Shown here is an 87-nucleotide RNA sequence from Scophthalmus maximus, a member of the family "mir-135 microRNA precursor family". The literature on the family includes a 2002 paper in Curr Biol by Lagos-Quintana et al., "Identification of tissue-specific microRNAs from mouse". The match comes from Rfam's covariance-model search (67 bits). Rfam 15.1 lists 2,125 matches to the family in 647 species.
RNA sequence: CCGCAGCUGCGUCUUAUGGCUUUCUAUUCCUAUGUGAGUUCUCUCUGACAUGUCAUGUAGGGUUCAAAGCCAUUGGACGCACGGUGG
Numbered sequence: 001c002c003g004c005a006g007c008u009g010c011g012u013c014u015u016a017u018g019g020c021u022u023u024c025u026a027u028u029c030c031u032a033u034g035u036g037a038g039u040u041c042u043c044u045c046u047g048a049c050a051u052g053u054c055a056u057g058u059a060g061g062g063u064u065c066a067a068a069g070c071c072a073u074u075g076g077a078c079g080c081a082c083g084g085u086g087g
Base pairs, nucleotide, nucleotide: 002087008081009080010079011078012077013076014075016073017072018071019070020069021068022067023066026064028062029061030060031059032058033057034056035055036054037053